A member of the RNA family "raiA RNA" from Acidithrix ferrooxidans, 212 nucleotides long. Pairs were carried over by alignment from the consensus structure, which is taken from published work.
[Rfam]
RNA sequence: GCCGGCUAGGUCUGUGGUUGAAAGUCGAUGCCAGUCGUAGGCGAAACGAUCCACGUAAGCCAACUAUUGGUUGGUGAUCAUGGUGCGGCUUAGGAGUAAGUCCCAGCUUCGUUUGAUCCACAGGGGAUCUUCGUUAGUCAAAGUUGGUGAUCAUUCUUUUAAUUGAUCACCUAGGGCAAGUGUGGGGUCAAAGACCAGGUCAGCUAGUCGGU
Numbered sequence: 001g002c003c004g005g006c007u008a009g010g011u012c013u014g015u016g017g018u019u020g021a022a023a024g025u026c027g028a029u030g031c032c033a034g035u036c037g038u039a040g041g042c043g044a045a046a047c048g049a050u051c052c053a054c055g056u057a058a059g060c061c062a063a064c065u066a067u068u069g070g071u072u073g074g075u076g077a078u079c080a081u082g083g084u085g086c087g088g089c090u091u092a093g094g095a096g097u098a099a100g101u102c103c104c105a106g107c108u109u110c111g112u113u114u115g116a117u118c119c120a121c122a123g124g125g126g127a128u129c130u131u132c133g134u135u136a137g138u139c140a141a142a143g144u145u146g147g148u149g150a151u152c153a154u155u156c157u158u159u160u161a162a163u164u165g166a167u168c169a170c171c172u173a174g175g176g177c178a179a180g181u182g183u184g185g186g187g188u189c190a191a192a193g194a195c196c197a198g199g200u201c202a203g204c205u206a207g208u209c210g211g212u
Stems, first nucleotide, its partner, number of pairs: 001212009012203003015197005028183003031041001033090007050083002055078001058075001060073001062071001064069001081190001102176003105130002108127002133170002140164002149156002